The family of this 36-nucleotide sequence from Emticicia oligotrophica is "DUF805b RNA".

RNA sequence: AAGGAGCAACUCGAAAAUCCUGUAAAAGAGUAGGGG
Numbered sequence: 001a002a003g004g005a006g007c008a009a010c011u012c013g014a015a016a017a018u019c020c021u022g023u024a025a026a027a028g029a030g031u032a033g034g035g036g
Base pairs, nucleotide, nucleotide: 002021003020004019005018010035011034012033